[Rfam]
RNA sequence: CACUCACUAACUGUAAGUCGCUCUGGAUAAGUGCGUCUGCUAAAUGACGUAAA
Numbered sequence: 001c002a003c004u005c006a007c008u009a010a011c012u013g014u015a016a017g018u019c020g021c022u023c024u025g026g027a028u029a030a031g032u033g034c035g036u037c038u039g040c041u042a043a044a045u046g047a048c049g050u051a052a053a
Stems, first nucleotide, its partner, number of pairs: 012042001013040003019035003023031002

Rfam assigns this 53-nucleotide RNA from Coregonus sp. 'balchen' to the family "UnaL2 LINE 3' element". Rfam classes the family as a cis-regulatory element. Pairs were carried over by alignment from the consensus structure, which is taken from published work. The match comes from Rfam's covariance-model search (56 bits). Rfam describes the family as follows. The eel long interspersed element (LINE) UnaL2 and its partner short interspersed element (SINE) share a conserved 3' tail containing a stem-loop that is critical for their retrotransposition. Presumably, the first step of retrotransposition is the recognition of their 3' tails by UnaL2-encoded reverse transcriptase. The solution structure of a 17-nucleotide RNA derived from the 3' tail of UnaL2 was determined by NMR. Rfam links the family to the GO term transposition, RNA-mediated.